[Rfam]
RNA sequence: AUCCUUGACACGGGGUGCCGCACAUAGUGUGCGUGCUGAGAUCAAUACCCGUCGAACCUGUCUAGUUAGUACUAGCGAAGGAAUGUCACGGAUGACUGAU
Numbered sequence: 001a002u003c004c005u006u007g008a009c010a011c012g013g014g015g016u017g018c019c020g021c022a023c024a025u026a027g028u029g030u031g032c033g034u035g036c037u038g039a040g041a042u043c044a045a046u047a048c049c050c051g052u053c054g055a056a057c058c059u060g061u062c063u064a065g066u067u068a069g070u071a072c073u074a075g076c077g078a079a080g081g082a083a084u085g086u087c088a089c090g091g092a093u094g095a096c097u098g099a100u
Stems, first nucleotide, its partner, number of pairs: 006088005011051004016045001017036002019033005057081003062075004
Dot-bracket structure: .....(((((((((.((((((((.....))))).))........)..)))).....(((..((((......))))...)))..)))))............
TPP riboswitch aptamer (THI element): a 100-nucleotide RNA from Cryobacterium lyxosi. A search with the family's covariance model found it, with a score of 58 bits.